[Rfam]
Shown here is an 80-nucleotide sequence from Microcaecilia unicolor, a member of the family "mir-190 microRNA precursor family".
Lineage of the source: Eukaryota > Opisthokonta > Chordata > Gymnophiona > Microcaecilia.
Rfam links the family to the GO terms RISC complex and miRNA-mediated post-transcriptional gene silencing.
For this family Rfam cites "MicroRNA discovery and profiling in human embryonic stem cells by deep sequencing of small RNA libraries" (Bar et al., Stem Cells, 2008).
Rfam 15.1 lists 1,667 matches to the family in 854 species.
The base pairs follow the family's consensus structure, which was predicted with RNAalifold.
RNA sequence: CAUUCUGUUAAUAUAUGUUUGAUGGCUAGUGUCAAUAAGUUCUUAUUAACACUAGCCAUCAAACAUAUAUUAACAGAUGC
Numbered sequence: 001c002a003u004u005c006u007g008u009u010a011a012u013a014u015a016u017g018u019u020u021g022a023u024g025g026c027u028a029g030u031g032u033c034a035a036u037a038a039g040u041u042c043u044u045a046u047u048a049a050c051a052c053u054a055g056c057c058a059u060c061a062a063a064c065a066u067a068u069a070u071u072a073a074c075a076g077a078u079g080c
Stems, first nucleotide, its partner, number of pairs: 005076005012069015028053005